This 443-nucleotide RNA sequence from Novosphingobium sp. AP12 belongs to the Rfam family "Bacterial RNase P class A". It is annotated as a ribozyme. The base pairs follow the family's consensus structure, which is taken from published work. The match comes from Rfam's covariance-model search (274 bits). About the family: Ribonuclease P (RNase P) is a ubiquitous endoribonuclease, found in archaea, bacteria and eukarya as well as chloroplasts and mitochondria.

[Rfam]
RNA sequence: CCGGGGAGCCGGGCAGCCGCGGGGUCCUUUCGGGCCGCGAGGAAAGUCCGGGCUCCACGAAACAAGGGUGGCGGGUAACGCCCGCCGGGCGAGGGGGGCUUCCAGGCCUUCCGAAGCUUAGGGAAAGUGCCACAGAGAGCAGACCGCCGCGUUCCUUCGGGAGCAGGUAAGGGUGAAAGGGUGCGGUAAGAGCGCACCGCGCUACCGGUGACGGCAAGCGGCAAGGCAAACCCCACCCGGAGCAAGACCGAAUAGGGGCUGCGCGCCGGCGUCCGCGAAAGCGGGGGGAUCGGCGGGUUCGUUUCGGACCCAGGCAGCCCGGGUUGGUCGCUUGAGCGAUGCAGCGAUGUAUCGCCUAGAGGAAUGGCUGCCACCUGUCGUAAGGUCCCUCGAUUGGGAGACCACGCCAGGAACAGAACCCGGCUUACAGGCUCCCCGGCGCA
Numbered sequence: 001c002c003g004g005g006g007a008g009c010c011g012g013g014c015a016g017c018c019g020c021g022g023g024g025u026c027c028u029u030u031c032g033g034g035c036c037g038c039g040a041g042g043a044a045a046g047u048c049c050g051g052g053c054u055c056c057a058c059g060a061a062a063c064a065a066g067g068g069u070g071g072c073g074g075g076u077a078a079c080g081c082c083c084g085c086c087g088g089g090c091g092a093g094g095g096g097g098g099c100u101u102c103c104a105g106g107c108c109u110u111c112c113g114a115a116g117c118u119u120a121g122g123g124a125a126a127g128u129g130c131c132a133c134a135g136a137g138a139g140c141a142g143a144c145c146g147c148c149g150c151g152u153u154c155c156u157u158c159g160g161g162a163g164c165a166g167g168u169a170a171g172g173g174u175g176a177a178a179g180g181g182u183g184c185g186g187u188a189a190g191a192g193c194g195c196a197c198c199g200c201g202c203u204a205c206c207g208g209u210g211a212c213g214g215c216a217a218g219c220g221g222c223a224a225g226g227c228a229a230a231c232c233c234c235a236c237c238c239g240g241a242g243c244a245a246g247a248c249c250g251a252a253u254a255g256g257g258g259c260u261g262c263g264c265g266c267c268g269g270c271g272u273c274c275g276c277g278a279a280a281g282c283g284g285g286g287g288g289a290u291c292g293g294c295g296g297g298u299u300c301g302u303u304u305c306g307g308a309c310c311c312a313g314g315c316a317g318c319c320c321g322g323g324u325u326g327g328u329c330g331c332u333u334g335a336g337c338g339a340u341g342c343a344g345c346g347a348u349g350u351a352u353c354g355c356c357u358a359g360a361g362g363a364a365u366g367g368c369u370g371c372c373a374c375c376u377g378u379c380g381u382a383a384g385g386u387c388c389c390u391c392g393a394u395u396g397g398g399a400g401a402c403c404a405c406g407c408c409a410g411g412a413a414c415a416g417a418a419c420c421c422g423g424c425u426u427a428c429a430g431g432c433u434c435c436c437c438g439g440c441g442c443a
Stems, first nucleotide, its partner, number of pairs: 001439010011428001012372007020039002023036005044426003048423005053242004062304001064302001066238005071085005086121001087119004122233002127231002129227003144172002146168003151164005180198006199222001200220004205214003246329004256320006296310005336355008